[Rfam]
RNA sequence: AUUGUCCACUGGGGGUGCAUUUGCUGAGAAGGCUGAGCCUAACCCUUUUACCUGAUCUGGUUAAUGCCAGCGUAGGGAAUGUGGGAUCGCAUCCCG
Numbered sequence: 001a002u003u004g005u006c007c008a009c010u011g012g013g014g015g016u017g018c019a020u021u022u023g024c025u026g027a028g029a030a031g032g033c034u035g036a037g038c039c040u041a042a043c044c045c046u047u048u049u050a051c052c053u054g055a056u057c058u059g060g061u062u063a064a065u066g067c068c069a070g071c072g073u074a075g076g077g078a079a080u081g082u083g084g085g086a087u088c089g090c091a092u093c094c095c096g
Stems, first nucleotide, its partner, number of pairs: 006084004011046004017024002031039003051076004057070004
RNA: TPP riboswitch aptamer (THI element)